The record is a 57-nucleotide sequence, which matches "Plastid-rps18 3UTR RNA" in Rfam. The family has 238 seed sequences and 1,462 matches in Rfam 15.1. By type it is a cis-regulatory element. About the family: Plastid rps18 is a non-coding RNA (ncRNA) present in plastids. It was identified as a short stem-loop motif in the 3 prime untranslate region (3UTR) of rps18 gene. Rfam's curators put it in the seed alignment.
[Rfam]
RNA sequence: CGCAAGUAUUUUACGGUUAAGAAGCAACUGCCUCUUGUGCAAAUCGUGUAUUAAUAU
Numbered sequence: 001c002g003c004a005a006g007u008a009u010u011u012u013a014c015g016g017u018u019a020a021g022a023a024g025c026a027a028c029u030g031c032c033u034c035u036u037g038u039g040c041a042a043a044u045c046g047u048g049u050a051u052u053a054a055u056a057u
Stems, first nucleotide, its partner, number of pairs: 018037005024031002